[Rfam]
RNA sequence: AAAGCCAUAUAAGCGCCAGAGCUUGCGACUGGAGAGCUGCUGCAGUAAUUUCCCGCGGUGGGAAGGGCGGCUAUGCAAGCUGACGAGGUGGAGGCGUUCGAACCUUUCGGCGGGGACCUCCCGGUAGAGCAUUCAUACCGUAAGCCAACAUGCAAAACGACGCGGGCAACCGGUCGGCCAACCAUGUGGCGGGAAUGAGC
Numbered sequence: 001a002a003a004g005c006c007a008u009a010u011a012a013g014c015g016c017c018a019g020a021g022c023u024u025g026c027g028a029c030u031g032g033a034g035a036g037c038u039g040c041u042g043c044a045g046u047a048a049u050u051u052c053c054c055g056c057g058g059u060g061g062g063a064a065g066g067g068c069g070g071c072u073a074u075g076c077a078a079g080c081u082g083a084c085g086a087g088g089u090g091g092a093g094g095c096g097u098u099c100g101a102a103c104c105u106u107u108c109g110g111c112g113g114g115g116a117c118c119u120c121c122c123g124g125u126a127g128a129g130c131a132u133u134c135a136u137a138c139c140g141u142a143a144g145c146c147a148a149c150a151u152g153c154a155a156a157a158c159g160a161c162g163c164g165g166g167c168a169a170c171c172g173g174u175c176g177g178c179c180a181a182c183c184a185u186g187u188g189g190c191g192g193g194a195a196u197g198a199g200c
Stems, first nucleotide, its partner, number of pairs: 020081008090121005098110004122140005127134001144190004149186002158176004163172003